[Rfam]
RNA sequence: UACAAUCAUCAAGACGCCCUACAUGGGCCCCAACCGAGCGGGAACGCCGCGGUGGUAAAGCGAUGAGGGCAUUCAGGCCAAAACAGUUCCGUUAU
Numbered sequence: 001u002a003c004a005a006u007c008a009u010c011a012a013g014a015c016g017c018c019c020u021a022c023a024u025g026g027g028c029c030c031c032a033a034c035c036g037a038g039c040g041g042g043a044a045c046g047c048c049g050c051g052g053u054g055g056u057a058a059a060g061c062g063a064u065g066a067g068g069g070c071a072u073u074c075a076g077g078c079c080a081a082a083a084c085a086g087u088u089c090c091g092u093u094a095u
Base pairs, nucleotide, nucleotide: 006066007065008064009063010062016028017027018026019025030055031054034052035051036050038047039046042090044088068079069078070077
The record is a 95-nucleotide sequence from Lentimicrobium saccharophilum, which matches "SAM-I/IV (S-adenosyl methionine) riboswitch aptamer" in Rfam. The source organism's lineage runs through Bacteria, Pseudomonadati, Bacteroidota, Lentimicrobiaceae and Lentimicrobium. The base pairs follow the family's consensus structure, which is taken from published work.